[Rfam]
This 78-nucleotide sequence from Holothuria leucospilota belongs to the Rfam family "mir-9/mir-79 microRNA precursor family".
A search with the family's covariance model found it, with a score of 76 bits.
Rfam 15.1 lists 5,647 matches to the family in 934 species.

RNA sequence: CUGUCAUGUUCUUUGGUUAUCUAGCUGUAUGAGUGUCGUUAACACAUCAUAAAGCUAGGUUACCAAAGAUAAAGGCAG
Numbered sequence: 001c002u003g004u005c006a007u008g009u010u011c012u013u014u015g016g017u018u019a020u021c022u023a024g025c026u027g028u029a030u031g032a033g034u035g036u037c038g039u040u041a042a043c044a045c046a047u048c049a050u051a052a053a054g055c056u057a058g059g060u061u062a063c064c065a066a067a068g069a070u071a072a073a074g075g076c077a078g
Base pairs, nucleotide, nucleotide: 001078002077003076004075005074007072010069011068012067013066014065015064016063017062019060020059021058022057023056024055025054026053028051029050030049031048032047